[Rfam]
Rfam assigns this 171-nucleotide sequence from Paraburkholderia xenovorans to the family "Group II catalytic intron D1-D4-3". The source organism's lineage runs through Bacteria, Pseudomonadati, Betaproteobacteria, Paraburkholderia and Paraburkholderia xenovorans. Rfam's curators put it in the seed alignment. Gene Ontology term of the family: Group II intron splicing.
RNA sequence: AUGAGGGUGACCGAGUGUGGGAAGGAAGCGUGGAGCGCAACUGCGAGCCGAUGGACAAGAACCGGAUAGAAGGCGGUGCCGAGCAGGGCGAGCGGGCAGAAAACCGCGAAGCUCUCGUGAUCAAGGCGAGGUGUCGUAAAUCCGGCGGUUGUGCAGUGAAGGAGUGCGUUC
Numbered sequence: 001a002u003g004a005g006g007g008u009g010a011c012c013g014a015g016u017g018u019g020g021g022a023a024g025g026a027a028g029c030g031u032g033g034a035g036c037g038c039a040a041c042u043g044c045g046a047g048c049c050g051a052u053g054g055a056c057a058a059g060a061a062c063c064g065g066a067u068a069g070a071a072g073g074c075g076g077u078g079c080c081g082a083g084c085a086g087g088g089c090g091a092g093c094g095g096g097c098a099g100a101a102a103a104c105c106g107c108g109a110a111g112c113u114c115u116c117g118u119g120a121u122c123a124a125g126g127c128g129a130g131g132u133g134u135c136g137u138a139a140a141u142c143c144g145g146c147g148g149u150u151g152u153g154c155a156g157u158g159a160a161g162g163a164g165u166g167c168g169u170u171c
Stems, first nucleotide, its partner, number of pairs: 001016002005012002028171001030169003038162001040157006046150005062145006073137003077133004083127001086114004092107004